[Rfam]
RNA: MIR480 microRNA precursor family
Organism: Octopus sinensis
RNA sequence: UAAUCAGUUUACCACAUGUAGUCAUCUGUGUGUAGUUUACCAUAACUGACAUCAGAACCAGUUAUUCUCACAUGUGUAUAUAUAUAUUUAAAAAAAAAAGCACACACAACAAAACUACUGACUAAAUUGUAA
Number, nucleotide and partner (000 for none) at each position: 001u000002a000003a000004u000005c129006a128007g127008u125009u124010u000011a000012c000013c000014a119015c000016a000017u000018g115019u114020a000021g000022u000023c000024a000025u109026c000027u106028g105029u104030g103031u102032g000033u000034a000035g000036u000037u000038u000039a000040c000041c000042a000043u000044a000045a000046c000047u000048g000049a000050c000051a000052u000053c000054a000055g000056a000057a000058c000059c000060a000061g000062u000063u000064a000065u000066u000067c000068u000069c000070a000071c000072a000073u000074g000075u000076g000077u000078a000079u000080a000081u000082a000083u000084a000085u000086a000087u000088u000089u000090a000091a000092a000093a000094a000095a000096a000097a000098a000099a000100g000101c000102a031103c030104a029105c028106a027107c000108a000109a025110c000111a000112a000113a000114a019115c018116u000117a000118c000119u014120g000121a000122c000123u000124a009125a008126a000127u007128u006129g005130u000131a000132a000